[Rfam]
RNA sequence: GGUUAGAUGAAGAUUAUUAAACUGCAACAAUAUGAUGGGAUUAUUCUCCUGUGAUUCCCUUGUUUUAAGUCUCUGAUGACC
Numbered sequence: 001g002g003u004u005a006g007a008u009g010a011a012g013a014u015u016a017u018u019a020a021a022c023u024g025c026a027a028c029a030a031u032a033u034g035a036u037g038g039g040a041u042u043a044u045u046c047u048c049c050u051g052u053g054a055u056u057c058c059c060u061u062g063u064u065u066u067a068a069g070u071c072u073c074u075g076a077u078g079a080c081c
Stems, first nucleotide, its partner, number of pairs: 001080001003079003037050004
Rfam assigns this 81-nucleotide RNA sequence from Zea mays to the family "Small nucleolar RNA Z199". Rfam's curators write: snoZ199 is a C/D box small nucleolar RNA, which acts as a methylation guide RNA for sites on 18S and 25S rRNA. Rice snoZ199 is reported to be homologous to Arabidopsis snoR13. Lineage of the source: Eukaryota > Embryophyta > Tracheophyta > Andropogonodae > Zea. The match comes from Rfam's covariance-model search (70 bits). Rfam 15.1 lists 953 matches to the family in 222 species. The family's consensus secondary structure was predicted with PFOLD. Rfam classes the family as a C/D-box small nucleolar RNA.